Rfam assigns this 305-nucleotide RNA from Panicum miliaceum to the family "Plant signal recognition particle RNA". The organism belongs to Panicum sect. Panicum, within Eukaryota. A reference for the family is Wild et al. (2002), "Towards the structure of the mammalian signal recognition particle", Curr Opin Struct Biol. Rfam links the family to the GO terms SRP-dependent cotranslational protein targeting to membrane, signal sequence recognition and signal recognition particle, endoplasmic reticulum targeting. The family's RNA type in Rfam is non-coding RNA gene.

[Rfam]
RNA sequence: GCCGAGCUCAGUAGCUGGAGCUUGUGACCCAAGCGGGGGCAUUAAGGUGGCGUGGAUGUUUGGUGCGGAAUCUGGGCCUGGGCCUCCGGUGUGCCUUUGCUGGUCUGCCCGUUCCAAGUUGCAAGUGGCCCAAGGUGACUCAGGCGAAAGCUUGGGCUUCCCUGGACCUGAAGUGGCAGGAACGGCGUGAGGCUGGCUUCACAGAGCAGCGAUCACUGCCCGCUUCCAACGGUGGAAGGAUAACAGGCCGCUGCACCACGGGCCCAAUACAGGUCCAGAGUCCCUACAAACAGACCGCCAUCUUU
Numbered sequence: 001g002c003c004g005a006g007c008u009c010a011g012u013a014g015c016u017g018g019a020g021c022u023u024g025u026g027a028c029c030c031a032a033g034c035g036g037g038g039g040c041a042u043u044a045a046g047g048u049g050g051c052g053u054g055g056a057u058g059u060u061u062g063g064u065g066c067g068g069a070a071u072c073u074g075g076g077c078c079u080g081g082g083c084c085u086c087c088g089g090u091g092u093g094c095c096u097u098u099g100c101u102g103g104u105c106u107g108c109c110c111g112u113u114c115c116a117a118g119u120u121g122c123a124a125g126u127g128g129c130c131c132a133a134g135g136u137g138a139c140u141c142a143g144g145c146g147a148a149a150g151c152u153u154g155g156g157c158u159u160c161c162c163u164g165g166a167c168c169u170g171a172a173g174u175g176g177c178a179g180g181a182a183c184g185g186c187g188u189g190a191g192g193c194u195g196g197c198u199u200c201a202c203a204g205a206g207c208a209g210c211g212a213u214c215a216c217u218g219c220c221c222g223c224u225u226c227c228a229a230c231g232g233u234g235g236a237a238g239g240a241u242a243a244c245a246g247g248c249c250g251c252u253g254c255a256c257c258a259c260g261g262g263c264c265c266a267a268u269a270c271a272g273g274u275c276c277a278g279a280g281u282c283c284c285u286a287c288a289a290a291c292a293g294a295c296c297g298c299c300a301u302c303u304u305u
Base pairs, nucleotide, nucleotide: 001040002039003038004023005022006021007020008019009018011016028037029036030035044304045303046302047301048300049299050298051297052296054295057292058291060289061288062287065284067282068281071279072278073277074276075275076274077273078272079271080265081264082263083262084261085260089257091256092255093254095253101250102249103248104247105246106245107244109239110238112237113236114235115234116233118230119229120228121227123225124224125223126222128167130165131164132163134161135160137158139156140155141154142153143152144151145150168173175220176219177218178217179216184213186211187210188209193204194203195202